[Rfam]
Shown here is an 87-nucleotide RNA from Bagarius yarrelli, a member of the family "mir-145 microRNA precursor family". The family's consensus secondary structure was predicted with RNAalifold. The literature on the family includes a 2005 paper in Genes Dev by Chen et al., "The developmental miRNA profiles of zebrafish as determined by small RNA cloning". Taxonomically the source falls in Bagarius (Eukaryota, Metazoa, Craniata, Gnathostomata). The match comes from Rfam's covariance-model search (84 bits). Its family is annotated with miRNA-mediated post-transcriptional gene silencing and RISC complex in the Gene Ontology.
RNA sequence: UCCCUUUCCCCAGGGUCCAGUUUUCCCAGGAAUCCCUUGGACAUUUACAAAUGGGAUUCCUGGAAAUACUGUUCUUGGUGGUGGGGU
Numbered sequence: 001u002c003c004c005u006u007u008c009c010c011c012a013g014g015g016u017c018c019a020g021u022u023u024u025c026c027c028a029g030g031a032a033u034c035c036c037u038u039g040g041a042c043a044u045u046u047a048c049a050a051a052u053g054g055g056a057u058u059c060c061u062g063g064a065a066a067u068a069c070u071g072u073u074c075u076u077g078g079u080g081g082u083g084g085g086g087u
Stems, first nucleotide, its partner, number of pairs: 018071004023066002026063011